[Rfam]
RNA sequence: CCCAAGACUCACGUCAUUGGGCUAGAUUCUAGCGUACCUUCGGCACU
Numbered sequence: 001c002c003c004a005a006g007a008c009u010c011a012c013g014u015c016a017u018u019g020g021g022c023u024a025g026a027u028u029c030u031a032g033c034g035u036a037c038c039u040u041c042g043g044c045a046c047u
Base pairs, nucleotide, nucleotide: 001021002020003019004018005017006015007014008013034046035045037043038042
Acido-Lenti-1 RNA: a 47-nucleotide sequence from Lentisphaera araneosa.
The family has 87 seed sequences and 2,607 matches in Rfam 15.1.
Taxonomically the source falls in Lentisphaera araneosa (Bacteria, Pseudomonadati, Lentisphaeria, Lentisphaera).
It is annotated as a small RNA.